[Rfam]
RNA: Fluoride riboswitch aptamer (crcB RNA motif)
Organism: Dictyoglomus thermophilum
RNA sequence: AUCACAAGUGGCGAUGGAGUCCGCCAUAUAAUUGCCGAUAAAGGCUGAUGACUCCUACUUAUGU
Numbered sequence: 001a002u003c004a005c006a007a008g009u010g011g012c013g014a015u016g017g018a019g020u021c022c023g024c025c026a027u028a029u030a031a032u033u034g035c036c037g038a039u040a041a042a043g044g045c046u047g048a049u050g051a052c053u054c055c056u057a058c059u060u061a062u063g064u
Base pairs, nucleotide, nucleotide: 010025011024012023013022016055017054018053019052020051021050034045035044036043